[Rfam]
RNA sequence: ACUGGUGCAGUGAUUGUAACGUAAAUUCCUCGUCCUGAAUGCUGUAGAAAUCGGCAUGACAGACUCGAUUUACACCCAUAGAAUAUGAGCACCA
Numbered sequence: 001a002c003u004g005g006u007g008c009a010g011u012g013a014u015u016g017u018a019a020c021g022u023a024a025a026u027u028c029c030u031c032g033u034c035c036u037g038a039a040u041g042c043u044g045u046a047g048a049a050a051u052c053g054g055c056a057u058g059a060c061a062g063a064c065u066c067g068a069u070u071u072a073c074a075c076c077c078a079u080a081g082a083a084u085a086u087g088a089g090c091a092c093c094a
Base pairs, nucleotide, nucleotide: 003094004093006091007090
Rfam assigns this 94-nucleotide RNA sequence from Zingiber officinale to the family "Small nucleolar RNA snoR8a". Rfam classes the family as a C/D-box small nucleolar RNA. Rfam links the family to the GO terms RNA processing and nucleolus. On this family, see Brown et al., RNA 2001: "Multiple snoRNA gene clusters from Arabidopsis". Taxonomically the source falls in Zingiber (Eukaryota, Streptophyta, Streptophytina, Zingiberales). It scores 86 bits against the family's covariance model. Rfam 15.1 lists 956 matches to the family in 245 species.